RNA: GcvB RNA
RNA sequence: CAGCAGUUAACCUGAACGGCUUGAUUAUCCCUGAUGAUCAAUUGGUUAAUUUGUUGCGAUGUUGUGUUUGCAUUAACUCGAAAUUCGAGUUGGUAGAUUCGUCUGCCACCAUGCCUUAGGUUUAACCUACCUGUGGCAUACUUCCUGUAUUUUUUUUGACCUGUCAGUCAAAUUUUAACACCGCCUUCAUGGCGGUGUUUUUUUAU
Numbered sequence: 001c002a003g004c005a006g007u008u009a010a011c012c013u014g015a016a017c018g019g020c021u022u023g024a025u026u027a028u029c030c031c032u033g034a035u036g037a038u039c040a041a042u043u044g045g046u047u048a049a050u051u052u053g054u055u056g057c058g059a060u061g062u063u064g065u066g067u068u069u070g071c072a073u074u075a076a077c078u079c080g081a082a083a084u085u086c087g088a089g090u091u092g093g094u095a096g097a098u099u100c101g102u103c104u105g106c107c108a109c110c111a112u113g114c115c116u117u118a119g120g121u122u123u124a125a126c127c128u129a130c131c132u133g134u135g136g137c138a139u140a141c142u143u144c145c146u147g148u149a150u151u152u153u154u155u156u157u158g159a160c161c162u163g164u165c166a167g168u169c170a171a172a173u174u175u176u177a178a179c180a181c182c183g184c185c186u187u188c189a190u191g192g193c194g195g196u197g198u199u200u201u202u203u204u205a206u
Stems, first nucleotide, its partner, number of pairs: 009047004015043002021041009076090005092131005149174001151172003177199008
Dot-bracket structure: ........((((..((....(((((((((...)))))))))))))))............................(((((.....))))).(((((..............................))))).................(.(((................))).)..((((((((.......)))))))).......